[Rfam]
RNA sequence: CAAGGCCCUGUCUCCCAACCCUGUACCAUGGUGUGCCAGUCCCUGGUACAGGCAUGGGGGGCAGGGACCUGGG
Numbered sequence: 001c002a003a004g005g006c007c008c009u010g011u012c013u014c015c016c017a018a019c020c021c022u023g024u025a026c027c028a029u030g031g032u033g034u035g036c037c038a039g040u041c042c043c044u045g046g047u048a049c050a051g052g053c054a055u056g057g058g059g060g061g062c063a064g065g066g067a068c069c070u071g072g073g
Stems, first nucleotide, its partner, number of pairs: 007065003011061005019052002023049006

Shown here is a 73-nucleotide RNA from Eptesicus fuscus, a member of the family "mir-150 microRNA precursor family". Gene Ontology terms of the family: RISC complex and miRNA-mediated post-transcriptional gene silencing. A reference for the family is Linsen et al. (2010), "Small RNA expression and strain specificity in the rat", BMC Genomics. The base pairs follow the family's consensus structure, which was predicted with RNAalifold.